The record is a 77-nucleotide sequence from Xanthomonas oryzae, which matches "Xanthomonas sRNA sX9" in Rfam. The match comes from Rfam's covariance-model search (54 bits). The family's consensus secondary structure was predicted with RNAalifold.
Nucleotides: 077
Stems, first nucleotide, its partner, number of pairs: 002016002005013002020036001022034002025031001049074006
Number, partner (000 for none) and nucleotide at each position: 001000g002016u003015g004000u005013a006012c007000c008000a009000c010000g011000c012006g013005u014000c015003c016002a017000c018000u019000g020036c021000c022034g023033u024000u025031c026000u027000g028000a029000g030000c031025g032000c033023g034022c035000c036020g037000u038000c039000c040000g041000c042000g043000c044000c045000c046000a047000c048000a049074u050073g051072a052071c053070a054069g055000c056000u057000g058000c059000u060000c061000a062000c063000u064000a065000c066000g067000u068000u069054u070053u071052g072051u073050u074049a075000g076000a077000g
Notes:
The family has 16 seed sequences and 309 matches in Rfam 15.1.